This 84-nucleotide RNA from Microtus ochrogaster belongs to the Rfam family "Small nucleolar RNA SNORD87". Rfam classes the family as a C/D-box small nucleolar RNA. A search with the family's covariance model found it, with a score of 100 bits. Its family is annotated with RNA processing and nucleolus in the Gene Ontology.
RNA sequence: GCUGGCACAAUGAUGACUUAGAGUUUGCCGUUUACCCAGCUGAGGGUGUCUUUGAAGAAAUACUCUUAAGACUGAGGUGCCAGC
Numbered sequence: 001g002c003u004g005g006c007a008c009a010a011u012g013a014u015g016a017c018u019u020a021g022a023g024u025u026u027g028c029c030g031u032u033u034a035c036c037c038a039g040c041u042g043a044g045g046g047u048g049u050c051u052u053u054g055a056a057g058a059a060a061u062a063c064u065c066u067u068a069a070g071a072c073u074g075a076g077g078u079g080c081c082a083g084c
Stems, first nucleotide, its partner, number of pairs: 001084007

A reference for the family is Huttenhofer et al. (2001), "RNomics: an experimental approach that identifies 201 candidates for novel, small, non-messenger RNAs in mouse", EMBO J.